This 114-nucleotide sequence from Oceanobacillus piezotolerans belongs to the Rfam family "PyrR binding site". It scores 66 bits against the family's covariance model.
[Rfam]
RNA sequence: AUCAACUUUUAACUAAAUCCAGAGAGGUUUAGAAAGUUGCUAAUUUGUAAACGUGUAUUUUCUGAAUUUGUACACGUCUACCCCUUUGCAGCUUUCUGCAAAGGGGUUUUUUAA
Dot-bracket structure: ..(((((((....((((((......)))))).)))))))......((((((..((.......))..)))))).......((((((((((((....)))))))))))).......
Numbered sequence: 001a002u003c004a005a006c007u008u009u010u011a012a013c014u015a016a017a018u019c020c021a022g023a024g025a026g027g028u029u030u031a032g033a034a035a036g037u038u039g040c041u042a043a044u045u046u047g048u049a050a051a052c053g054u055g056u057a058u059u060u061u062c063u064g065a066a067u068u069u070g071u072a073c074a075c076g077u078c079u080a081c082c083c084c085u086u087u088g089c090a091g092c093u094u095u096c097u098g099c100a101a102a103g104g105g106g107u108u109u110u111u112u113a114a
Stems, first nucleotide, its partner, number of pairs: 003039007014031006046072006054064002080107012
Rfam links the family to the GO terms pyrimidine nucleobase transport and pyrimidine nucleobase biosynthetic process. The base pairs follow the family's consensus structure, which is taken from published work.